[Rfam]
RNA: Pseudomonas sRNA CrcZ
Organism: Pseudomonas benzenivorans
RNA sequence: ACAACAAUAAAAAAAUGAACAAGAAAAACAUUUCCUCUCUGGCACAACAAAAACAAUAGGGCAGAGAAGUAGCAAACAGAUUUUUUUGGAAAGGGUGUGCUUUUCUGGGGGUUAACCCUGGCAACCAGGCUUAGAAGAAUAAAACUACCCUGAAGGUAGCUCGUGCACUGGUUGAGUCCCUGGCGACAAUGGCAACACCGGCGUCCAAAAAAAUACGUUUGCCCUUGAGCAGAUCGCUAAAAACAACAACAGAUCGUUCAAUAACAAAAACAAAGCACGCAGCAAUUAUUUGAGGGGAGCCACGGCUCCCCUCAGUGCUUUCUGGCAGCCGUACUUUUCGGCCGAA
Numbered sequence: 001a002c003a004a005c006a007a008u009a010a011a012a013a014a015a016u017g018a019a020c021a022a023g024a025a026a027a028a029c030a031u032u033u034c035c036u037c038u039c040u041g042g043c044a045c046a047a048c049a050a051a052a053a054c055a056a057u058a059g060g061g062c063a064g065a066g067a068a069g070u071a072g073c074a075a076a077c078a079g080a081u082u083u084u085u086u087u088g089g090a091a092a093g094g095g096u097g098u099g100c101u102u103u104u105c106u107g108g109g110g111g112u113u114a115a116c117c118c119u120g121g122c123a124a125c126c127a128g129g130c131u132u133a134g135a136a137g138a139a140u141a142a143a144a145c146u147a148c149c150c151u152g153a154a155g156g157u158a159g160c161u162c163g164u165g166c167a168c169u170g171g172u173u174g175a176g177u178c179c180c181u182g183g184c185g186a187c188a189a190u191g192g193c194a195a196c197a198c199c200g201g202c203g204u205c206c207a208a209a210a211a212a213a214u215a216c217g218u219u220u221g222c223c224c225u226u227g228a229g230c231a232g233a234u235c236g237c238u239a240a241a242a243a244c245a246a247c248a249a250c251a252g253a254u255c256g257u258u259c260a261a262u263a264a265c266a267a268a269a270a271c272a273a274a275g276c277a278c279g280c281a282g283c284a285a286u287u288a289u290u291u292g293a294g295g296g297g298a299g300c301c302a303c304g305g306c307u308c309c310c311c312u313c314a315g316u317g318c319u320u321u322c323u324g325g326c327a328g329c330c331g332u333a334c335u336u337u338u339c340g341g342c343c344g345a346a
Base pairs, nucleotide, nucleotide: 034069037066038065039064040063084210085209086208087207088206098203099202100201122174123173124172125171126170127169128168145159146158147157148156149155231323232255233254234253275318276317277316278315292313293312294311295310296309297308298307299306300305